[Rfam]
The family of this 94-nucleotide RNA from Janibacter melonis is "Glycine riboswitch aptamer". Lineage of the source: Bacteria > Bacillati > Actinomycetes > Intrasporangiaceae > Janibacter. The match comes from Rfam's covariance-model search (62 bits).
RNA sequence: UCACCCCGCGGGGGAGAGUCCCCGUCCACGUCGACGGGGCGCCGAAGGGGCAAACUCCCCGGAACCUCUCAGGCGCCAGGACCCCGCGGAUCAG
Numbered sequence: 001u002c003a004c005c006c007c008g009c010g011g012g013g014g015a016g017a018g019u020c021c022c023c024g025u026c027c028a029c030g031u032c033g034a035c036g037g038g039g040c041g042c043c044g045a046a047g048g049g050g051c052a053a054a055c056u057c058c059c060c061g062g063a064a065c066c067u068c069u070c071a072g073g074c075g076c077c078a079g080g081a082c083c084c085c086g087c088g089g090a091u092c093a094g
Stems, first nucleotide, its partner, number of pairs: 006089008020039007041074003044070002048068003055061001